[Rfam]
RNA: mir-9193 microRNA precursor family
Organism: Myotis myotis
RNA sequence: CUCGGGGGAGAGGUCCCUUGGCCCGGAUUGGGAGAGGGCGUAGGCCAGGCCGAGGGACCCUACUGGUACACC
Numbered sequence: 001c002u003c004g005g006g007g008g009a010g011a012g013g014u015c016c017c018u019u020g021g022c023c024c025g026g027a028u029u030g031g032g033a034g035a036g037g038g039c040g041u042a043g044g045c046c047a048g049g050c051c052g053a054g055g056g057a058c059c060c061u062a063c064u065g066g067u068a069c070a071c072c
Stems, first nucleotide, its partner, number of pairs: 004069001006067001009064002012059012025046002028043003032039001